[Rfam]
RNA sequence: CUGGUCGCUGAACAGGGCCGGCAAAGUCAAGGGGCGCCGCUUCUUGGCGCUCCUCGUAUCUAUGUUGCUCAACGGAGGAUGUAGCUAUGAGAA
Number, nucleotide and partner (000 for none) at each position: 001c021002u020003g019004g018005u017006c016007g000008c015009u014010g000011a000012a000013c000014a009015g008016g006017g005018c004019c003020g002021g001022c000023a000024a000025a000026g000027u000028c000029a000030a000031g052032g000033g051034g050035c049036g048037c047038c046039g045040c000041u000042u000043c000044u000045u039046g038047g037048c036049g035050c034051u033052c031053c091054u090055c089056g088057u087058a086059u000060c084061u083062a082063u081064g080065u079066u078067g000068c077069u076070c075071a000072a000073c000074g000075g070076a069077g068078g066079a065080u064081g063082u062083a061084g060085c000086u058087a057088u056089g055090a054091g053092a000093a000